[Rfam]
RNA sequence: GUUAAUGACACUGGAGGCAGCGGUUCAUCGAUCUGUUCCCUGAACGCUGAUAUAUAUACACCAAGAGGAAUCGGUCGAUAAACCUCUGCAUCCAGCGCUUAACCC
Dot-bracket structure: ............(((..(((.((((.(((((((..(((.............................)))..))))))).)))).)))..)))............

Rfam assigns this 105-nucleotide RNA sequence from Anisodus acutangulus to the family "MIR162_1 microRNA precursor family". The match comes from Rfam's covariance-model search (97 bits). Its Rfam clan is "MIR167 microRNA precursor clan". Pairs were carried over by alignment from the consensus structure, which was predicted with RNAalifold. Its family is annotated with RISC complex and miRNA-mediated post-transcriptional gene silencing in the Gene Ontology.